[Rfam]
RNA sequence: AUUCCCCAGAUAUGCCCGCCGGCGUUGCCGGUGACAUGCCCAGGUAGCCAUCGAUCUUCAAGGCUGCGGCGCGGCUUGUCCGCGUUGAUCGACACCCGUUCGCAUCGCAUCCCUUGACGCGAACAGCCACUGCAUCCGCGGUGGUGGAUGC
Numbered sequence: 001a002u003u004c005c006c007c008a009g010a011u012a013u014g015c016c017c018g019c020c021g022g023c024g025u026u027g028c029c030g031g032u033g034a035c036a037u038g039c040c041c042a043g044g045u046a047g048c049c050a051u052c053g054a055u056c057u058u059c060a061a062g063g064c065u066g067c068g069g070c071g072c073g074g075c076u077u078g079u080c081c082g083c084g085u086u087g088a089u090c091g092a093c094a095c096c097c098g099u100u101c102g103c104a105u106c107g108c109a110u111c112c113c114u115u116g117a118c119g120c121g122a123a124c125a126g127c128c129a130c131u132g133c134a135u136c137c138g139c140g141g142u143g144g145u146g147g148a149u150g151c
Stems, first nucleotide, its partner, number of pairs: 011038004015033001018032006044067006053090004068086007119151003126145008
A member of the RNA family "radC RNA" from Aromatoleum aromaticum, 151 nucleotides long.